[Rfam]
RNA sequence: AGAAUCCUGCGAUGCUCGUUACGGUUUUAAGUUGUUUUAAACCAAUGACUGUUUUCCGGGAGACCCAUAUUGAAACGCAGCUGACAUGCCCCCGAAAGGGGAUCUCAAAAACGUUUCUGCGGUCACCCACCUGCUAAGGCGGGUUUGGAACACGUAAAUCGGACGGCAAAGCGGGUUUUAA
Numbered sequence: 001a002g003a004a005u006c007c008u009g010c011g012a013u014g015c016u017c018g019u020u021a022c023g024g025u026u027u028u029a030a031g032u033u034g035u036u037u038u039a040a041a042c043c044a045a046u047g048a049c050u051g052u053u054u055u056c057c058g059g060g061a062g063a064c065c066c067a068u069a070u071u072g073a074a075a076c077g078c079a080g081c082u083g084a085c086a087u088g089c090c091c092c093c094g095a096a097a098g099g100g101g102a103u104c105u106c107a108a109a110a111a112c113g114u115u116u117c118u119g120c121g122g123u124c125a126c127c128c129a130c131c132u133g134c135u136a137a138g139g140c141g142g143g144u145u146u147g148g149a150a151c152a153c154g155u156a157a158a159u160c161g162g163a164c165g166g167c168a169a170a171g172c173g174g175g176u177u178u179u180a181a
Base pairs, nucleotide, nucleotide: 002179003178004177006175007174008173009172010171013168014167015166017165018164019163033152034151035150036149038147039146040145041144042143043142058128059127060126062124063123064122065121069118072117073116074115075114076113077112084105089101090100091099092098

Rfam assigns this 181-nucleotide sequence from Paenibacillus psychroresistens to the family "6S / SsrS RNA". The base pairs follow the family's consensus structure, which is taken from published work. Lineage of the source: Bacteria > Bacillati > Caryophanales > Paenibacillaceae > Paenibacillus. Rfam's curators write: E. coli 6S RNA was the first non coding RNA to be sequenced, but its function was unknown until recently.